The family of this 66-nucleotide RNA from Lederbergia lenta is "Bacillaceae-1 RNA". Rfam classes the family as a small RNA.
RNA sequence: UAAUAAGGUUUCUCGCCUAAACUCGCCGCAUCCUGUGGCAACGUCGAGGGACCCGCAUCAUGCGGG
Numbered sequence: 001u002a003a004u005a006a007g008g009u010u011u012c013u014c015g016c017c018u019a020a021a022c023u024c025g026c027c028g029c030a031u032c033c034u035g036u037g038g039c040a041a042c043g044u045c046g047a048g049g050g051a052c053c054c055g056c057a058u059c060a061u062g063c064g065g066g
Stems, first nucleotide, its partner, number of pairs: 011049005017043001025039005052066005

A search with the family's covariance model found it, with a score of 56 bits.